Notes: Shown here is a 63-nucleotide sequence from Caenorhabditis brenneri, a member of the family "mir-35_2 microRNA precursor family". The family is grouped with related families in Rfam's "mir-36 clan". Pairs were carried over by alignment from the consensus structure, which was predicted with RNAalifold. Lineage of the source: Eukaryota > Ecdysozoa > Rhabditomorpha > Rhabditidae > Caenorhabditis.
RNA sequence: AGCUGGUCUUUCCUUGUUGAUAAGUCCACAAACAGCGUCUAUCAACAGGCCAAGAUCAGCUCU
Numbered sequence: 001a002g003c004u005g006g007u008c009u010u011u012c013c014u015u016g017u018u019g020a021u022a023a024g025u026c027c028a029c030a031a032a033c034a035g036c037g038u039c040u041a042u043c044a045a046c047a048g049g050c051c052a053a054g055a056u057c058a059g060c061u062c063u
Stems, first nucleotide, its partner, number of pairs: 001061003005057005012049001015047008